[Rfam]
RNA sequence: AUGGCCCGGGAUCGCCACCAGUCAGCGCGUUGCGCCCACUGGUGCUGUUUUG
Dot-bracket structure: ...............(((((((..((((...))))..)))))))........
Numbered sequence: 001a002u003g004g005c006c007c008g009g010g011a012u013c014g015c016c017a018c019c020a021g022u023c024a025g026c027g028c029g030u031u032g033c034g035c036c037c038a039c040u041g042g043u044g045c046u047g048u049u050u051u052g
Stems, first nucleotide, its partner, number of pairs: 016044007025035004
ffh sRNA: a 52-nucleotide sequence from Litorivita pollutaquae. A reference for the family is Meyer et al. (2009), "Identification of candidate structured RNAs in the marine organism 'Candidatus Pelagibacter ubique'", BMC Genomics. Taxonomically the source falls in Litorivita (Bacteria, Pseudomonadati, Alphaproteobacteria, Paracoccaceae). The base pairs follow the family's consensus structure, which is taken from published work. A search with the family's covariance model found it, with a score of 67 bits.